[Rfam]
RNA sequence: UUUUUGCGUUAACGAUAGUAGCGGCAUCCUUUUUUUGCUUUUUAAAAUAUCAUGCAAAUUGCAAAAAAAGAUACAGCGGAUAGCGUGUUAAAAC
Dot-bracket structure: ...........(((.((...((...(((...(((((((......................)))))))..)))...))...)).)))........